RNA sequence: AUAAUGAUACUUCUUUCGUGAAAGCCGGCUCGUCGAGAACAGAGGCGGAGGUGAAAUUCCUAUGU
Numbered sequence: 001a002u003a004a005u006g007a008u009a010c011u012u013c014u015u016u017c018g019u020g021a022a023a024g025c026c027g028g029c030u031c032g033u034c035g036a037g038a039a040c041a042g043a044g045g046c047g048g049a050g051g052u053g054a055a056a057u058u059c060c061u062a063u064g065u
Stems, first nucleotide, its partner, number of pairs: 012062001013024004025048003029044003049061003

The record is a 65-nucleotide RNA sequence from Johnsonella ignava, which matches "pemK RNA" in Rfam.
The base pairs follow the family's consensus structure, which is taken from published work.
NCBI's taxonomy places the organism under Bacteria, Clostridia, Lachnospirales, Johnsonella, Johnsonella ignava.